[Rfam]
RNA: Mason-Pfizer monkey virus packaging signal
Organism: Papio anubis
RNA sequence: UGGCGCUCUUCCUGCUGCUUCUUCACCCAUUUUUCCCGUGCCCACAAAAAUUGCUACCUGACAGCGCAGGCGCCAAAGGACGGUCGACCGUUAACAAGGACAAAAGAAAUUAAACUUUUUCGAUCACCGCGGGAACCUGCUGCGUCAGAAUUGAAGGUAAGUGGCGCGUCCGAAAUGGGACAAGAAUUAAGUCAGCAUCAAAUCUAUGUAGGACAAUUAAAAGAGGCUUUAAAGAUACGAGGAGUAAAGGUUAAAGGUAAUGAUUUGUUUAAAUUUUUUGAUUUUGUAAAAGAUACUUGCCCUU
Numbered sequence: 001u002g003g004c005g006c007u008c009u010u011c012c013u014g015c016u017g018c019u020u021c022u023u024c025a026c027c028c029a030u031u032u033u034u035c036c037c038g039u040g041c042c043c044a045c046a047a048a049a050a051u052u053g054c055u056a057c058c059u060g061a062c063a064g065c066g067c068a069g070g071c072g073c074c075a076a077a078g079g080a081c082g083g084u085c086g087a088c089c090g091u092u093a094a095c096a097a098g099g100a101c102a103a104a105a106g107a108a109a110u111u112a113a114a115c116u117u118u119u120u121c122g123a124u125c126a127c128c129g130c131g132g133g134a135a136c137c138u139g140c141u142g143c144g145u146c147a148g149a150a151u152u153g154a155a156g157g158u159a160a161g162u163g164g165c166g167c168g169u170c171c172g173a174a175a176u177g178g179g180a181c182a183a184g185a186a187u188u189a190a191g192u193c194a195g196c197a198u199c200a201a202a203u204c205u206a207u208g209u210a211g212g213a214c215a216a217u218u219a220a221a222a223g224a225g226g227c228u229u230u231a232a233a234g235a236u237a238c239g240a241g242g243a244g245u246a247a248a249g250g251u252u253a254a255a256g257g258u259a260a261u262g263a264u265u266u267g268u269u270u271a272a273a274u275u276u277u278u279u280g281a282u283u284u285u286g287u288a289a290a291a292g293a294u295a296c297u298u299g300c301c302c303u304u
Stems, first nucleotide, its partner, number of pairs: 114158003118155002124150001125148001128144005166181001169179004188231003191227003238280008248266006289304002292301001294299001